[Rfam]
Nucleotides: 070
Base pairs, nucleotide, nucleotide: 003066004065005064006063007062009036010035011034012033013032014031015030016029017028039067045057046056047055
Number, partner (000 for none) and nucleotide at each position: 001000u002000u003066c004065g005064u006063u007062c008000a009036u010035c011034u012033c013032u014031g015030c016029c017028c018000g019000c020000c021000a022000u023000g024000u025000u026000u027000a028017g029016g030015g031014u032013g033012g034011g035010g036009a037000c038000g039067g040000a041000a042000g043000u044000a045057a046056g047055g048000a049000g050000u051000u052000a053000u054000u055047c056046c057045u058000g059000a060000a061000g062007g063006a064005a065004c066003g067039c068000g069000c070000c